Shown here is a 95-nucleotide RNA from Treponema maltophilum, a member of the family "TD-2 RNA". By type it is a small RNA. For this family Rfam cites "Identification of 22 candidate structured RNAs in bacteria using the CMfinder comparative genomics pipeline" (Weinberg et al., Nucleic Acids Res, 2007). Pairs were carried over by alignment from the consensus structure, which is taken from published work.
RNA sequence: UCCGGCAUGGAUGCCGGGAACGCCAUACGUGCCCGAGUUUGCGGAGCAAACUCGAGUUAAAAAUCGGACUUAGGAUGUCCGAUUUUUAAACCUUC
Dot-bracket structure: ((((((......))))))...............(((((((((...))))))))).((((((((((((((.......)))))))))))).))....